[Rfam]
Rfam assigns this 597-nucleotide part of an RNA from Macrostomum lignano to the family "Eukaryotic large subunit ribosomal RNA".

Nucleotides: 597
Stems, first nucleotide, its partner, number of pairs: 002595002010429004015425002017421005023224004030216002033213003039116010049105007066097005073080002120204005130197004137150005167191009227240001228238003241263006266367002272324006278304002281299006305314002329353003334348004355364003378407006388400003438479001440477001442476001444472006453463002490565001491563004495557001496554005503528001507522005530544003534540001571589004575584003
Number, partner (000 for none) and nucleotide at each position: 001000a002595a003594a004000g005000a006000a007000g008000a009000c010429c011428c012427u013426g014000u015425u016424g017421a018420g019419c020418u021417u022000g023224a024223c025222u026221c027000u028000a029000g030216u031215c032000c033213g034212a035211c036000u037000u038000u039116g040115u041114g042113a043112a044111g045110a046109g047108a048107c049105a050104u051103g052102a053101g054100a055099g056000g057000u058000g059000u060000a061000g062000u063000a064000u065000a066097g067096g068095u069094g070093g071000g072000a073080g074079c075000g076000u077000c078000a079074g080073c081000g082000a083000c084000u085000u086000u087000g088000a089000a090000a091000u092000a093070c094069c095068a096067c097066u098000a099055c100054u101053u102052u103051u104050a105049u106000c107048g108047u109046u110045u111044c112043u113042u114041u115040a116039c117000u118000u119000a120204u121203u122202c123201a124200g125000u126000g127000a128000a129000g130197c131196g132195g133194g134000a135000g136000c137150g138149g139148c140147c141146u142000u143000c144000a145000c146141g147140g148139g149138c150137c151000u152000c153000g154000u155000u156000u157000c158000u159000g160000g161000u162000g163000u164000u165000a166000a167191a168190c169189g170188g171187c172186u173185g174184g175183c176000c177000c178000u179000c180000g181000c182000g183175g184174c185173c186172g187171g188170c189169c190168g191167u192000g193000a194133c195132c196131u197130g198000c199000u200124c201123u202122g203121a204120a205000g206000a207000c208000a209000g210000u211035g212034u213033c214000a215031g216030g217000c218000g219000g220000g221026g222025a223024g224023u225000u226000u227240g228238a229237c230236u231000g232000g233000g234000g235000c236230g237229g238228u239000a240227c241263a242262u243261c244260u245259g246258u247000c248000a249000a250000a251000a252000g253000g254000u255000a256000a257000c258246g259245c260244a261243g262242g263241u264000g265000u266367c267366c268000c269000a270000a271000g272324a273323u274322g275321a276320g277319c278304u279303c280000a281299g282298u283297c284296a285295g286294g287000a288000c289000a290000g291000a292000a293000a294286c295285c296284u297283g298282g299281c300000g301000u302000a303279g304278a305314g306313c307000a308000a309000a310000a311000g312000g313306g314305c315000a316000a317000a318000a319277g320276c321275u322274c323273a324272u325000u326000u327000g328000a329353u330352u331351u332000u333000g334348a335347u336346u337345u338000u339000c340000a341000g342000u343000a344000c345337g346336a347335a348334u349000a350000c351331a352330g353329a354000c355364c356363g357362u358000g359000a360000a361000a362357g363356c364355g365000c366267g367266g368000c369000c370000u371000a372000u373000c374000g375000a376000u377000c378407c379406c380405u381404u382403u383402g384000a385000u386000u387000a388400a389399u390398c391000a392000g393000a394000g395000u396000u397000u398390g399389a400388u401000g402383c403382a404381a405380g406379g407378g408000g409000u410000g411000u412000c413000a414000g415000a416000a417021a418020a419019g420018u421017u422000a423000c424016c425015a426013c427012a428011g429010g430000g431000a432000u433000a434000a435000c436000u437000g438479g439000c440477u441000u442476g443000u444472g445471g446470c447469g448468g449467c450000c451000a452000a453463g454462c455000g456000u457000u458000c459000a460000u461000a462454g463453c464000g465000a466000c467449g468448u469447c470446g471445c472444u473000u474000u475000u476442u477440g478000a479438u480000c481000c482000u483000u484000c485000g486000a487000u488000g489000u490565c491563g492562g493561c494560u495557c496554u497553u498552c499551c500550u501000a502000u503528c504000a505000u506000u507522g508521u509520g510519a511518a512000g513000c514000a515000g516000a517000a518511u519510u520509c521508a522507c523000c524000a525000a526000g527000c528503g529000u530544u531543g532542g533000a534540u535000u536000g537000u538000u539000c540534a541000c542532c543531c544530a545000c546000c547000a548000a549000u550500a551499g552498g553497g554496a555000a556000c557495g558000u559000g560494a561493g562492c563491u564000g565490g566000g567000u568000u569000u570000a571589g572588a573587c574586c575584g576583u577582c578000g579000u580000g581000a582577g583576a584575c585000a586574g587573g588572u589571u590000a591000g592000u593000u594003u595002u596000a597000c
About this RNA:
A search with the family's covariance model found it, with a score of 3098 bits.